[Rfam]
RNA sequence: CUGGGUCACAUGGAGUAGCAGACUGGAUUCCUUCUGGUCAGGUGAAAGACGACCUUAGCAAAAGGAGAGAUACUUCCCUGGGUACCCAAUCCCUAAAACUGCCCUUUGAUGCCCCCGCACGGACGCUUCUUGCAUGGCGGGAGAUUGUGCCAGCUCCCGUUUCAUGUGCGUUGGGGCAACGCAGAUUUAGACGGCACCCUACAAGACAACUGUACGGAGGGCGAAUACUUUUUUAUGACCAG
Numbered sequence: 001c002u003g004g005g006u007c008a009c010a011u012g013g014a015g016u017a018g019c020a021g022a023c024u025g026g027a028u029u030c031c032u033u034c035u036g037g038u039c040a041g042g043u044g045a046a047a048g049a050c051g052a053c054c055u056u057a058g059c060a061a062a063a064g065g066a067g068a069g070a071u072a073c074u075u076c077c078c079u080g081g082g083u084a085c086c087c088a089a090u091c092c093c094u095a096a097a098a099c100u101g102c103c104c105u106u107u108g109a110u111g112c113c114c115c116c117g118c119a120c121g122g123a124c125g126c127u128u129c130u131u132g133c134a135u136g137g138c139g140g141g142a143g144a145u146u147g148u149g150c151c152a153g154c155u156c157c158c159g160u161u162u163c164a165u166g167u168g169c170g171u172u173g174g175g176g177c178a179a180c181g182c183a184g185a186u187u188u189a190g191a192c193g194g195c196a197c198c199c200u201a202c203a204a205g206a207c208a209a210c211u212g213u214a215c216g217g218a219g220g221g222c223g224a225a226u227a228c229u230u231u232u233u234u235a236u237g238a239c240c241a242g
Stems, first nucleotide, its partner, number of pairs: 004054004019042001080093003101222008110214001111177005116170005125133002136161007181213004
A member of the RNA family "RT-2 RNA", 242 nucleotides long.